A member of the RNA family "Bacteroidales small SRP" from Hoylesella marshii, 107 nucleotides long. Its Rfam clan is "SRP clan". The match comes from Rfam's covariance-model search (115 bits). The family's consensus secondary structure is taken from published work. For this family Rfam cites "A high-resolution transcriptome map identifies small RNA regulation of metabolism in the gut microbe Bacteroides thetaiotaomicron" (Ryan et al., Nat Commun, 2020). Rfam classes the family as a non-coding RNA gene. Taxonomically the source falls in Hoylesella marshii (Bacteria, Bacteroidota, Bacteroidales, Hoylesella).
RNA sequence: UAAAAACGGGCAAGUCUUACACGGCCAGCUCCCUGUGAAUCCUCCAGGACGGGAACGUAGCAAAGGUAACAGGUUGUAGCGGUGCGAUGUAAGUAGCUUGCCCACCC
Numbered sequence: 001u002a003a004a005a006a007c008g009g010g011c012a013a014g015u016c017u018u019a020c021a022c023g024g025c026c027a028g029c030u031c032c033c034u035g036u037g038a039a040u041c042c043u044c045c046a047g048g049a050c051g052g053g054a055a056c057g058u059a060g061c062a063a064a065g066g067u068a069a070c071a072g073g074u075u076g077u078a079g080c081g082g083u084g085c086g087a088u089g090u091a092a093g094u095a096g097c098u099u100g101c102c103c104a105c106c107c
Stems, first nucleotide, its partner, number of pairs: 008103008017092005022086002024083002